[Rfam]
RNA sequence: UUAUAGCCCCGAUUGCAGUGGCAUCCUUUUUUAUAGCUGGCAGGUUUUUGGACCUGACAGUUAUAAAAAAGAUAUAACGUACAGCGGGAAUCCUG
Dot-bracket structure: ........(((.(....((...(((...(((((((((((..................)))))))))))..)))...))....).)))........

The family of this 95-nucleotide sequence from Flavobacterium succinicans is "Flavo-1 RNA".
NCBI's taxonomy places the organism under Bacteria, Flavobacteriia, Flavobacteriales, Flavobacteriaceae, Flavobacterium.